[Rfam]
RNA: tRNA
Organism: Pseudoflavitalea sp. G-6-1-2
RNA sequence: GUACCCAUAGCUCAGCUGGUUAGAGCAUCAGAUUGUGGUUCUGAGGGUCGCCGGUUCGAACCCGGUUGGGUACC
Numbered sequence: 001g002u003a004c005c006c007a008u009a010g011c012u013c014a015g016c017u018g019g020u021u022a023g024a025g026c027a028u029c030a031g032a033u034u035g036u037g038g039u040u041c042u043g044a045g046g047g048u049c050g051c052c053g054g055u056u057c058g059a060a061c062c063c064g065g066u067u068g069g070g071u072a073c074c
Stems, first nucleotide, its partner, number of pairs: 001073007010026004028044005050066005